[Rfam]
RNA: Small nucleolar RNA SNORD113/SNORD114 family
Organism: Vulpes vulpes
RNA sequence: UGGAUCGAUGAUGACCACUGGUGGCGUAUGAGUCAUAUACGAUGAAUACGUGGAACUCUGAGGUCCAA
Dot-bracket structure: .(((((.......................................................)))))..